[Rfam]
Rfam assigns this 53-nucleotide sequence from Olea europaea to the family "Plastid-ccsA-ndhD-2 3UTR RNA". A reference for the family is Stern and Gruissem (1987), "Control of plastid gene expression: 3' inverted repeats act as mRNA processing and stabilizing elements, but do not terminate transcription", Cell. The source organism's lineage runs through Eukaryota, Magnoliopsida, Gunneridae, Oleaceae and Olea europaea. The family has 421 seed sequences and 875 matches in Rfam 15.1. Plastid ccsA-ndhD-2 is a non-coding RNA (ncRNA) recognised in plastids. It was found in the three prime untranslated region (3UTR) of ccsA and ndhD genes, its 3UTR location suggests a role in transcript maturation.
RNA sequence: CUGAUGAGAACCUUGUGAAUCAAAUAUUGUAGUGAUUCACAGGGUUCACGCCG
Numbered sequence: 001c002u003g004a005u006g007a008g009a010a011c012c013u014u015g016u017g018a019a020u021c022a023a024a025u026a027u028u029g030u031a032g033u034g035a036u037u038c039a040c041a042g043g044g045u046u047c048a049c050g051c052c053g
Stems, first nucleotide, its partner, number of pairs: 005050002008047015